[Rfam]
RNA sequence: UUUUUGGCAUAAGUAUGUCCCAUGCAAGACUUGGGAUAUACUUAUACCAAAA
Numbered sequence: 001u002u003u004u005u006g007g008c009a010u011a012a013g014u015a016u017g018u019c020c021c022a023u024g025c026a027a028g029a030c031u032u033g034g035g036a037u038a039u040a041c042u043u044a045u046a047c048c049a050a051a052a
Base pairs, nucleotide, nucleotide: 006048007047009045010044011043012042014040015039016038018036019035020034021033022031
RNA: mir-1302 microRNA precursor family